[Rfam]
Nucleotides: 099
Base pairs, nucleotide, nucleotide: 012090013089014088015087016086018084019083021081022080023079024078025077026076029071030070031069032068033067034066039063040062041061
Number, partner (000 for none) and nucleotide at each position: 001000a002000g003000g004000u005000g006000c007000a008000g009000g010000c011000g012090c013089a014088a015087g016086g017000u018084g019083a020000g021081g022080g023079g024078u025077g026076c027000u028000a029071u030070c031069u032068g033067u034066g035000c036000u037000g038000c039063a040062g041061g042000g043000a044000c045000a046000u047000g048000g049000u050000c051000a052000a053000u054000g055000g056000a057000a058000u059000u060000g061041u062040c063039u064000c065000a066034c067033a068032c069031a070030g071029a072000a073000a074000u075000c076026g077025c078024a079023c080022c081021c082000g083019u084018c085000a086016c087015c088014u089013u090012g091000g092000c093000c094000u095000g096000c097000c098000g099000a
This 99-nucleotide sequence from Octodon degus belongs to the Rfam family "mir-342 microRNA precursor family". Taxonomically the source falls in Octodon (Eukaryota, Sarcopterygii, Dipnotetrapodomorpha, Tetrapoda). Its family is annotated with RISC complex, cellular response to inorganic substance and cellular response to leukemia inhibitory factor in the Gene Ontology. For this family Rfam cites "MicroRNA transcriptome in the newborn mouse ovaries determined by massive parallel sequencing" (Ahn et al., Mol Hum Reprod, 2010).